[Rfam]
RNA: L25-Gammaproteobacteria ribosomal protein leader
RNA sequence: CCUGCUGCUGGGUCGCCUGUAGCGGG
Numbered sequence: 001c002c003u004g005c006u007g008c009u010g011g012g013u014c015g016c017c018u019g020u021a022g023c024g025g026g
Stems, first nucleotide, its partner, number of pairs: 001026008010017002